[Rfam]
RNA sequence: GUGCUCGCGUGGUACAUGCCGAUUCCGAGCACCGGCCGCGCUCGCCUGGCGGCUGCUCGCUACGUUUUGUUAGCC
Numbered sequence: 001g002u003g004c005u006c007g008c009g010u011g012g013u014a015c016a017u018g019c020c021g022a023u024u025c026c027g028a029g030c031a032c033c034g035g036c037c038g039c040g041c042u043c044g045c046c047u048g049g050c051g052g053c054u055g056c057u058c059g060c061u062a063c064g065u066u067u068u069g070u071u072a073g074c075c
Stems, first nucleotide, its partner, number of pairs: 001015004020034002023031001025029001046073007
Shown here is a 75-nucleotide sequence from Xanthomonas oryzae, a member of the family "Xanthomonas sRNA sX9".
A reference for the family is Schmidtke et al. (2011), "Genome-wide transcriptome analysis of the plant pathogen Xanthomonas identifies sRNAs with putative virulence functions", Nucleic Acids Res.
By type it is a small RNA.